[Rfam]
RNA sequence: GGGGAUGAUCGGUUUCGACGAUGUUAGUCGCGACAGGUGAAGCGGGCCGAGGAUGCAGAAUUAUCUCGUAAACGCUGUCUGCAAAACAAUAAGUGCCAAACAAACGCGCACUGACUUCGCUCUCGCUGCCUAAGCAGUAAGACAGUCCGUCAGCCCGGGAUUGCUAUCGUCCCGGUUCCUGGCGUCAUUAAGAUAGCCACUGCUGUUUACCUUCGUCAUUGGGGUGAACGGGACUCUUAGAUGACUGGGCCCGGAUCAGCUACUUGUUUGCAGGAUAGCUGGGGCCGAGAAAAUCCGACGCAAACUGCGCCCGGAGAAGCCCUGACAACACGACAUCGGACGGGGGUUCAAUUCCCCCCAUCUCCACCA
Numbered sequence: 001g002g003g004g005a006u007g008a009u010c011g012g013u014u015u016c017g018a019c020g021a022u023g024u025u026a027g028u029c030g031c032g033a034c035a036g037g038u039g040a041a042g043c044g045g046g047c048c049g050a051g052g053a054u055g056c057a058g059a060a061u062u063a064u065c066u067c068g069u070a071a072a073c074g075c076u077g078u079c080u081g082c083a084a085a086a087c088a089a090u091a092a093g094u095g096c097c098a099a100a101c102a103a104a105c106g107c108g109c110a111c112u113g114a115c116u117u118c119g120c121u122c123u124c125g126c127u128g129c130c131u132a133a134g135c136a137g138u139a140a141g142a143c144a145g146u147c148c149g150u151c152a153g154c155c156c157g158g159g160a161u162u163g164c165u166a167u168c169g170u171c172c173c174g175g176u177u178c179c180u181g182g183c184g185u186c187a188u189u190a191a192g193a194u195a196g197c198c199a200c201u202g203c204u205g206u207u208u209a210c211c212u213u214c215g216u217c218a219u220u221g222g223g224g225u226g227a228a229c230g231g232g233a234c235u236c237u238u239a240g241a242u243g244a245c246u247g248g249g250c251c252c253g254g255a256u257c258a259g260c261u262a263c264u265u266g267u268u269u270g271c272a273g274g275a276u277a278g279c280u281g282g283g284g285c286c287g288a289g290a291a292a293a294u295c296c297g298a299c300g301c302a303a304a305c306u307g308c309g310c311c312c313g314g315a316g317a318a319g320c321c322c323u324g325a326c327a328a329c330a331c332g333a334c335a336u337c338g339g340a341c342g343g344g345g346g347u348u349c350a351a352u353u354c355c356c357c358c359c360a361u362c363u364c365c366a367c368c369a
Stems, first nucleotide, its partner, number of pairs: 001365007019338007032326001034324004043313005048068005054083006121142003125138005148184006155175004163197006203231009215245005248280003264275001266305004342358005
Dot-bracket structure: (((((((...........(((((((......(.((((.....((((([[[[[.((((((....]]]]].........)))))).....................................(((.(((((....))))).))).....((((((.((((....[[[[[[...))))...)))))).......]]]]]].....(((((((((...[[[[[...))))))))).........]]]]]..[[[.............[.((((.....]..]]].....................))))...))))).......)))).).....)))))))...(((((.......))))))))))))....
transfer-messenger RNA: a 369-nucleotide RNA from Arthrobacter sp. FB24. Rfam's curators put it in the seed alignment. Pairs were carried over by alignment from the consensus structure, which is taken from published work.